MIR2912 microRNA precursor family: a 156-nucleotide sequence from Populus trichocarpa. The family's consensus secondary structure was predicted with RNAalifold. The organism belongs to Populus, within Eukaryota. The family has 2 seed sequences and 15,051 matches in Rfam 15.1. A search with the family's covariance model found it, with a score of 135 bits.

RNA sequence: UUUAGAACUCGAGAUAUGGGCUGAACAUUGAACAGUGUCUGGGCUGAAGGACAGAUUCGGACUUCUCUGUCGUGGCUACAAUUUGGACUUGAAAACGGCCUUUUUAAAUCUUGGACUCCUCAUGAAAGUUUUAGGCCUAUGUCUUAUCUUUCAAUC
Numbered sequence: 001u002u003u004a005g006a007a008c009u010c011g012a013g014a015u016a017u018g019g020g021c022u023g024a025a026c027a028u029u030g031a032a033c034a035g036u037g038u039c040u041g042g043g044c045u046g047a048a049g050g051a052c053a054g055a056u057u058c059g060g061a062c063u064u065c066u067c068u069g070u071c072g073u074g075g076c077u078a079c080a081a082u083u084u085g086g087a088c089u090u091g092a093a094a095a096c097g098g099c100c101u102u103u104u105u106a107a108a109u110c111u112u113g114g115a116c117u118c119c120u121c122a123u124g125a126a127a128g129u130u131u132u133a134g135g136c137c138u139a140u141g142u143c144u145u146a147u148c149u150u151u152c153a154a155u156c
Base pairs, nucleotide, nucleotide: 003154005152006151007150009146011145012144013143014142015141016140017139018138019137020136021134022133023132024131025130027129028128029127035123036122037121041119042118043117045115048112049111050110051109054105055104059100060099062098063097068092072088073087